[Rfam]
RNA sequence: GCGCCGUUAGCUCAGUUGGUAGAGCAGCUGACUCUUAAUCAGCGGGUCCGGGGUUCGAGCCCCCGACGGCGUA
Numbered sequence: 001g002c003g004c005c006g007u008u009a010g011c012u013c014a015g016u017u018g019g020u021a022g023a024g025c026a027g028c029u030g031a032c033u034c035u036u037a038a039u040c041a042g043c044g045g046g047u048c049c050g051g052g053g054u055u056c057g058a059g060c061c062c063c064c065g066a067c068g069g070c071g072u073a
Base pairs, nucleotide, nucleotide: 001072002071003070004069005068006067007066010025011024012023013022027043028042029041030040031039049065050064051063052062053061
RNA: tRNA
Organism: Tomitella fengzijianii